Rfam assigns this 138-nucleotide RNA sequence from Mus musculus to the family "Small nucleolar RNA SNORA47".
RNA sequence: UGGAGGACUGAGAAGGUGGAGCAGUUCUGUACCGUGCUGCCUUCCAUUGGUUAAGACCUCCAACAGUAAAGGGCUGGCCGGCCAAAGAAUGUCCUCUCUAUCACCGUGGAGGGGCAGCACUGAGCUGGCCCACAUUGU
Numbered sequence: 001u002g003g004a005g006g007a008c009u010g011a012g013a014a015g016g017u018g019g020a021g022c023a024g025u026u027c028u029g030u031a032c033c034g035u036g037c038u039g040c041c042u043u044c045c046a047u048u049g050g051u052u053a054a055g056a057c058c059u060c061c062a063a064c065a066g067u068a069a070a071g072g073g074c075u076g077g078c079c080g081g082c083c084a085a086a087g088a089a090u091g092u093c094c095u096c097u098c099u100a101u102c103a104c105c106g107u108g109g110a111g112g113g114g115c116a117g118c119a120c121u122g123a124g125c126u127g128g129c130c131c132a133c134a135u136u137g138u
Stems, first nucleotide, its partner, number of pairs: 002061005015048004019042001021040005081130001083128001086126002090122002097117001101113001104111001

Overview
The base pairs follow the family's consensus structure, which was predicted with WAR.